[Rfam]
RNA sequence: GGGUGCGGUCUAGCAACCAGGAUGUUGGACCGCAGGUUGGGGAAUGGUCGGGCCGCCAUUC
Numbered sequence: 001g002g003g004u005g006c007g008g009u010c011u012a013g014c015a016a017c018c019a020g021g022a023u024g025u026u027g028g029a030c031c032g033c034a035g036g037u038u039g040g041g042g043a044a045u046g047g048u049c050g051g052g053c054c055g056c057c058a059u060u061c
Stems, first nucleotide, its partner, number of pairs: 005033011042061007
Dot-bracket structure: ....(((((((((((.......)))))))))))........(((((((......)))))))
Description: Rfam assigns this 61-nucleotide RNA sequence to the family "nhaA-I RNA". The sequence is in the family's curated seed alignment. Acidobacteria, Alphaproteobacteria, Betaproteobacteria and Gammaproteobacteria, Verrucomicrobia, cand. division NC10. Rfam classes the family as a riboswitch.